Rfam assigns this 152-nucleotide RNA from Brochothrix campestris to the family "glmS glucosamine-6-phosphate activated ribozyme aptamer".
By type it is a riboswitch.
The match comes from Rfam's covariance-model search (90 bits).
Pairs were carried over by alignment from the consensus structure, which is taken from published work.

RNA sequence: GCUUAAUUGCUAGCGCCAGUACUUAGAAUGUUUAAGUAGACGAGGAGAAAGUUAUCGAGGAUUCGGCGGAUACUUUCCGGCCUGUUGGGGUCGAUACACAAGGUUAAAACAAGCGGGUGACUACUUGCACAACAACCACGUGAACAACGGUC
Numbered sequence: 001g002c003u004u005a006a007u008u009g010c011u012a013g014c015g016c017c018a019g020u021a022c023u024u025a026g027a028a029u030g031u032u033u034a035a036g037u038a039g040a041c042g043a044g045g046a047g048a049a050a051g052u053u054a055u056c057g058a059g060g061a062u063u064c065g066g067c068g069g070a071u072a073c074u075u076u077c078c079g080g081c082c083u084g085u086u087g088g089g090g091u092c093g094a095u096a097c098a099c100a101a102g103g104u105u106a107a108a109a110c111a112a113g114c115g116g117g118u119g120a121c122u123a124c125u126u127g128c129a130c131a132a133c134a135a136c137c138a139c140g141u142g143a144a145c146a147a148c149g150g151u152c
Stems, first nucleotide, its partner, number of pairs: 020038008047077005055066004078093005097142003102137002110127004115122002